[Rfam]
RNA: SAM (S-adenosyl methionine) riboswitch aptamer
RNA sequence: GGUCAUGAGUGCCAGCGUCAAGCCCCGGCUUGCUGGCCGGCAACCCUCCUUCCGCGGUGGGGUGCCCCGGGUGAGGACCAGGUCAAGACACGACCGUAACCGUGUCGGACAAGCGCGGACC
Numbered sequence: 001g002g003u004c005a006u007g008a009g010u011g012c013c014a015g016c017g018u019c020a021a022g023c024c025c026c027g028g029c030u031u032g033c034u035g036g037c038c039g040g041c042a043a044c045c046c047u048c049c050u051u052c053c054g055c056g057g058u059g060g061g062g063u064g065c066c067c068c069g070g071g072u073g074a075g076g077a078c079c080a081g082g083u084c085a086a087g088a089c090a091c092g093a094c095c096g097u098a099a100c101c102g103u104g105u106c107g108g109a110c111a112a113g114c115g116c117g118g119a120c121c
Stems, first nucleotide, its partner, number of pairs: 001079004009038001011037006021030002039066003044062003048057002082110003087106006